RNA sequence: CCCAUGGUAUAGUCCCUGACUGGAAGGGUUUCCACACGGGUGAUAUAUAUAUAUAUAUAUAUAUAUCACCCGUGUGGAAACCCUUCCAGUCAGAGACUACACC
Numbered sequence: 001c002c003c004a005u006g007g008u009a010u011a012g013u014c015c016c017u018g019a020c021u022g023g024a025a026g027g028g029u030u031u032c033c034a035c036a037c038g039g040g041u042g043a044u045a046u047a048u049a050u051a052u053a054u055a056u057a058u059a060u061a062u063a064u065a066u067c068a069c070c071c072g073u074g075u076g077g078a079a080a081c082c083c084u085u086c087c088a089g090u091c092a093g094a095g096a097c098u099a100c101a102c103c
Stems, first nucleotide, its partner, number of pairs: 016093007024085014040069006
mir-36 microRNA precursor family: a 103-nucleotide RNA sequence from Leptobrachium leishanense. The source organism's lineage runs through Eukaryota, Tetrapoda, Anura, Megophryidae and Leptobrachium. The base pairs follow the family's consensus structure, which was predicted with WAR. Clan: mir-36 clan. On this family, see Ohler et al., RNA 2004: "Patterns of flanking sequence conservation and a characteristic upstream motif for microRNA gene identification".